[Rfam]
RNA sequence: CCAAUCCUGCCGCCGGCCCGAGGCUCGAAGACUGUGCAUGGCAGGAGCGGGGGAACCACGUUUCCCGGGCGUCGUGAGACGCCCUAGGGGUGAAGUCCUCGAGCGCGACCACGGCCGCGAACGGGGGCCGGGCAAGUACCUCCCAGCCCGAACCCGACAGCUCACUCCGCAGGCGUAUGGAGAGGUACU
Numbered sequence: 001c002c003a004a005u006c007c008u009g010c011c012g013c014c015g016g017c018c019c020g021a022g023g024c025u026c027g028a029a030g031a032c033u034g035u036g037c038a039u040g041g042c043a044g045g046a047g048c049g050g051g052g053g054a055a056c057c058a059c060g061u062u063u064c065c066c067g068g069g070c071g072u073c074g075u076g077a078g079a080c081g082c083c084c085u086a087g088g089g090g091u092g093a094a095g096u097c098c099u100c101g102a103g104c105g106c107g108a109c110c111a112c113g114g115c116c117g118c119g120a121a122c123g124g125g126g127g128c129c130g131g132g133c134a135a136g137u138a139c140c141u142c143c144c145a146g147c148c149c150g151a152a153c154c155c156g157a158c159a160g161c162u163c164a165c166u167c168c169g170c171a172g173g174c175g176u177a178u179g180g181a182g183a184g185g186u187a188c189u
Stems, first nucleotide, its partner, number of pairs: 001172001005046008047170006057087001088155003096127006130149004
Record summary:
c-di-AMP riboswitch aptamer (ydaO/yuaA leader): a 189-nucleotide RNA from Intrasporangium chromatireducens. Lineage of the source: Bacteria > Bacillati > Micrococcales > Intrasporangium > Intrasporangium chromatireducens. A search with the family's covariance model found it, with a score of 51 bits.